[Rfam]
Nucleotides: 072
Stems, first nucleotide, its partner, number of pairs: 001072003005068001
Number, partner (000 for none) and nucleotide at each position: 001072a002071c003070u004000u005068c006000c007000a008000u009000g010000a011000u012000g013000a014000u015000u016000a017000u018000c019000u020000c021000a022000u023000u024000g025000a026000c027000u028000u029000u030000c031000g032000u033000u034000c035000u036000u037000c038000u039000g040000a041000g042000u043000u044000u045000g046000c047000u048000g049000a050000a051000g052000c053000a054000a055000c056000u057000u058000u059000u060000a061000g062000u063000u064000c065000u066000g067000a068005g069000a070003a071002g072001u